[Rfam]
RNA sequence: CAGUGCGAGGGAUGAUGUAUUAUUAUAGUGCCUUGAAGAAGCUUGCCUUUCUUGAUUCGGCUUCUGAAAUGGACAUCAGUAUGG
Numbered sequence: 001c002a003g004u005g006c007g008a009g010g011g012a013u014g015a016u017g018u019a020u021u022a023u024u025a026u027a028g029u030g031c032c033u034u035g036a037a038g039a040a041g042c043u044u045g046c047c048u049u050u051c052u053u054g055a056u057u058c059g060g061c062u063u064c065u066g067a068a069a070u071g072g073a074c075a076u077c078a079g080u081a082u083g084g
Stems, first nucleotide, its partner, number of pairs: 001084001003082004
Rfam assigns this 84-nucleotide sequence from Brassica oleracea to the family "Small nucleolar RNA J33". By type it is a C/D-box small nucleolar RNA. The source organism's lineage runs through Eukaryota, Streptophytina, Brassicaceae, Brassica and Brassica oleracea. A reference for the family is Chen et al. (2003), "The high diversity of snoRNAs in plants: identification and comparative study of 120 snoRNA genes from Oryza sativa", Nucleic Acids Res.